Shown here is a 237-nucleotide sequence from Oryza meyeriana, a member of the family "RNase MRP". From the family's description: RNase MRP is an enzymatically active ribonucleoprotein with two distinct roles in eukaryotes. In mitochondria it plays a direct role in the initiation of mitochondrial DNA replication. In the nucleus it is involved in precursor rRNA processing, where it cleaves the internal transcribed spacer 1 between 18S and 5.8S rRNAs. Despite distinct functions, RNase MRP has been shown to be evolutionarily related to RNase P. Like eukaryotic RNase P, RNase MRP is not catalytically active without associated protein subunits. The family's RNA type in Rfam is ribozyme. The literature on the family includes a 1993 paper in FASEB J by Schmitt et al., "Secondary structure of RNase MRP RNA as predicted by phylogenetic comparison".
RNA sequence: ACAGCACAUGACGAAGUGAGCGGGCUCUUCGUAGCCCUGGAAAGUCCCCGGGCCCUUCAACCGCAGAGAUGCGGCCGCGGAGACGCGGAAAAUCUCAGAGCUCGCGCCCUCCUCUUCGCGAGGGGGCAGAGACACGUGUGGAGCCUUUUUGGGCGCGGGCCGAGAUCAAAAUGGCCAAUUACACAGUUAUUCACUUGAUCCAUGGAUUAACAGAACGGGGCUUACGAUCGUGUGUAA
Numbered sequence: 001a002c003a004g005c006a007c008a009u010g011a012c013g014a015a016g017u018g019a020g021c022g023g024g025c026u027c028u029u030c031g032u033a034g035c036c037c038u039g040g041a042a043a044g045u046c047c048c049c050g051g052g053c054c055c056u057u058c059a060a061c062c063g064c065a066g067a068g069a070u071g072c073g074g075c076c077g078c079g080g081a082g083a084c085g086c087g088g089a090a091a092a093u094c095u096c097a098g099a100g101c102u103c104g105c106g107c108c109c110u111c112c113u114c115u116u117c118g119c120g121a122g123g124g125g126g127c128a129g130a131g132a133c134a135c136g137u138g139u140g141g142a143g144c145c146u147u148u149u150u151g152g153g154c155g156c157g158g159g160c161c162g163a164g165a166u167c168a169a170a171a172u173g174g175c176c177a178a179u180u181a182c183a184c185a186g187u188u189a190u191u192c193a194c195u196u197g198a199u200c201c202a203u204g205g206a207u208u209a210a211c212a213g214a215a216c217g218g219g220g221c222u223u224a225c226g227a228u229c230g231u232g233u234g235u236a237a
Base pairs, nucleotide, nucleotide: 004235005234006233007232008231009230010229011228014196015195016194017193018192019191022037023036024035025034026033042223043222044221046220047219048218049217062073063072064071065070075088076087077086078085079084092166093165100160101159102158103157104156105155111153112152113151122146123145124144132139133138198207199206200205